[Rfam]
RNA: Small nucleolar RNA SNORA29
Organism: Nannospalax galili
RNA sequence: GCACCCAGCUUUCAAACUGCAAUUUAAAAAAAUUAAAAAUUUUAUAGAUUAAAGGGGCUGUGCUUGUGGGAAAGAUUAAAAUAGUCAGGAUCUGAAGGGGGAGGGCUUCUCAAUGCCUGCCCUCUAUAUGAACUGGCUGUACAAGAAAAA
Number, nucleotide and partner (000 for none) at each position: 001g000002c000003a000004c070005c069006c068007a067008g000009c000010u000011u000012u000013c000014a000015a000016a000017c057018u056019g000020c054021a000022a000023u000024u000025u000026a000027a000028a000029a000030a000031a000032a000033u000034u000035a000036a000037a000038a000039a000040u000041u000042u000043u000044a000045u000046a000047g000048a000049u000050u000051a000052a000053a000054g020055g000056g018057g017058c000059u000060g000061u000062g000063c000064u000065u000066g000067u007068g006069g005070g004071a000072a000073a000074g000075a000076u000077u000078a000079a000080a000081a000082u000083a000084g137085u136086c135087a134088g000089g000090a000091u000092c000093u000094g000095a000096a000097g000098g000099g000100g000101g000102a125103g124104g123105g122106c000107u000108u000109c000110u000111c000112a000113a000114u000115g000116c000117c000118u000119g000120c000121c000122c105123u104124c103125u102126a000127u000128a000129u000130g000131a000132a000133c000134u087135g086136g085137c084138u000139g000140u000141a000142c000143a000144a000145g000146a000147a000148a000149a000150a000